[Rfam]
Annotation:
This 263-nucleotide RNA from Ptilonorhynchus violaceus belongs to the Rfam family "Small Cajal body specific RNA 6". The family has 17 seed sequences and 1,309 matches in Rfam 15.1. From the family's description: U88 is small Cajal body specific RNA (scaRNA). scaRNAs are a novel class of small nuclear RNAs which localise to the Cajal bodies. U88 is found associated with both fibrillarin and Gar1p and co-localises with coilin in Cajal bodies. It is annotated as a small Cajal body RNA. Its family is annotated with nucleolus and RNA processing in the Gene Ontology. For this family Rfam cites "Cajal body-specific small nuclear RNAs: a novel class of 2'-O-methylation and pseudouridylation guide RNAs" (Darzacq et al., EMBO J, 2002). The source organism's lineage runs through Eukaryota, Sarcopterygii, Sauria, Passeriformes and Ptilonorhynchus.
RNA sequence: GGUCUGUGAUGUAUAGUAAAAGGUCUGAUUAUCCCAAGACUUGCACUUCCAUGCCCUUUUCUCCCAGCAGUUUCUCACCAGCCACAGCACAGCAAUGGUGUGGCUGGCAGAGUGUUUGCUGACAGUGUGAGAUGUGUUCAGUUCAUGUUAACCUGGAGUAGCGGAGACAUGGCUGGGAUCAGCAUCCAACAGUCCUGCUUGAAGGAGUUUGGGGUCUUGGAUUGGUCUAACUGGACACGUGAUCUGACUUUUGUGCUGAGACC
Numbered sequence: 001g002g003u004c005u006g007u008g009a010u011g012u013a014u015a016g017u018a019a020a021a022g023g024u025c026u027g028a029u030u031a032u033c034c035c036a037a038g039a040c041u042u043g044c045a046c047u048u049c050c051a052u053g054c055c056c057u058u059u060u061c062u063c064c065c066a067g068c069a070g071u072u073u074c075u076c077a078c079c080a081g082c083c084a085c086a087g088c089a090c091a092g093c094a095a096u097g098g099u100g101u102g103g104c105u106g107g108c109a110g111a112g113u114g115u116u117u118g119c120u121g122a123c124a125g126u127g128u129g130a131g132a133u134g135u136g137u138u139c140a141g142u143u144c145a146u147g148u149u150a151a152c153c154u155g156g157a158g159u160a161g162c163g164g165a166g167a168c169a170u171g172g173c174u175g176g177g178a179u180c181a182g183c184a185u186c187c188a189a190c191a192g193u194c195c196u197g198c199u200u201g202a203a204g205g206a207g208u209u210u211g212g213g214g215u216c217u218u219g220g221a222u223u224g225g226u227c228u229a230a231c232u233g234g235a236c237a238c239g240u241g242a243u244c245u246g247a248c249u250u251u252u253g254u255g256c257u258g259a260g261a262c263c
Stems, first nucleotide, its partner, number of pairs: 001263004037245003041241001048221004053216001061207004065121006078107009129187001131186005144171006152163001154161001